[Rfam]
Description: Shown here is a 172-nucleotide RNA sequence from Coprococcus sp. AF21-14LB, a member of the family "Group II catalytic intron D1-D4-3". Rfam's curators write: Group II introns are found in rRNA, tRNA and mRNA of organelles in fungi, plants and protists, and also in mRNA in bacteria. For this family Rfam cites "Control of branch-site choice by a group II intron" (Chu et al., EMBO J, 2001). Pairs were carried over by alignment from the consensus structure. Taxonomically the source falls in Coprococcus (Bacteria, Bacillota, Clostridia, Lachnospirales).
RNA sequence: UCCACCGUGAGGUGGAAUCUGAAGGAAGUCAGAUGGCAAAUCUCUGGUCUGACGAACAGAAACCACAUGAGGCUAUGGUUAAGGAUAAGGCUGCCAAACAAGUCAAAGUCCAAUAGCUACUCGGAAUUAAUUAUAGUAGAUGUGGCAGAUAUAUGGAGAGAAAGUGACGUGU
Numbered sequence: 001u002c003c004a005c006c007g008u009g010a011g012g013u014g015g016a017a018u019c020u021g022a023a024g025g026a027a028g029u030c031a032g033a034u035g036g037c038a039a040a041u042c043u044c045u046g047g048u049c050u051g052a053c054g055a056a057c058a059g060a061a062a063c064c065a066c067a068u069g070a071g072g073c074u075a076u077g078g079u080u081a082a083g084g085a086u087a088a089g090g091c092u093g094c095c096a097a098a099c100a101a102g103u104c105a106a107a108g109u110c111c112a113a114u115a116g117c118u119a120c121u122c123g124g125a126a127u128u129a130a131u132u133a134u135a136g137u138a139g140a141u142g143u144g145g146c147a148g149a150u151a152u153a154u155g156g157a158g159a160g161a162a163a164g165u166g167a168c169g170u171g172u
Base pairs, nucleotide, nucleotide: 001016002015003014004013005012006011028172029171032168036165037164041159042158043157044156045155046154047150048149049148050147051146063145064144065143066142067141072137073136074135076133077132078131079130080129081128082127083111084110085109086108089104090103091102092101